[Rfam]
Shown here is a 107-nucleotide RNA sequence from Caenorhabditis auriculariae, a member of the family "SL2 RNA". Taxonomically the source falls in Caenorhabditis (Eukaryota, Chromadorea, Rhabditida, Rhabditidae). Rfam describes the family as follows. This family represents SL2 RNA. SL2 RNA is involved in trans splicing in lower eukaryotes. By type it is a non-coding RNA gene. Rfam links the family to the GO term mRNA trans splicing, via spliceosome. The base pairs follow the family's consensus structure, which is taken from published work. Its Rfam clan is "SL clan".
RNA sequence: GGUUUUAACCCAGUUACUCAAGGUAAUUGAGUGUUCUGACCAUUCUUCGGAAUGCGUUAGCAAUACAAUUUUUGGAUAGCUUAGCCGGGGAUUUCCGGUUGAGCAAA
Numbered sequence: 001g002g003u004u005u006u007a008a009c010c011c012a013g014u015u016a017c018u019c020a021a022g023g024u025a026a027u028u029g030a031g032u033g034u035u036c037u038g039a040c041c042a043u044u045c046u047u048c049g050g051a052a053u054g055c056g057u058u059a060g061c062a063a064u065a066c067a068a069u070u071u072u073u074g075g076a077u078a079g080c081u082u083a084g085c086c087g088g089g090g091a092u093u094u095c096c097g098g099u100u101g102a103g104c105a106a107a
Stems, first nucleotide, its partner, number of pairs: 007035002009031001013027005037059004041054005081105001085101001087099001089096002